[Rfam]
RNA sequence: GUUGCUGACUCGGGGUGCCUUUGCAUUAAUUGCGGUGGCUGAGAAUUUACCCGUAUAACCUGAUCUGGAUAAUGCCAGCGUAGGGAAGUCACGGUAUCUCAUC
Numbered sequence: 001g002u003u004g005c006u007g008a009c010u011c012g013g014g015g016u017g018c019c020u021u022u023g024c025a026u027u028a029a030u031u032g033c034g035g036u037g038g039c040u041g042a043g044a045a046u047u048u049a050c051c052c053g054u055a056u057a058a059c060c061u062g063a064u065c066u067g068g069a070u071a072a073u074g075c076c077a078g079c080g081u082a083g084g085g086a087a088g089u090c091a092c093g094g095u096a097u098c099u100c101a102u103c
Stems, first nucleotide, its partner, number of pairs: 006091005011053004017039003021035005059084004065078004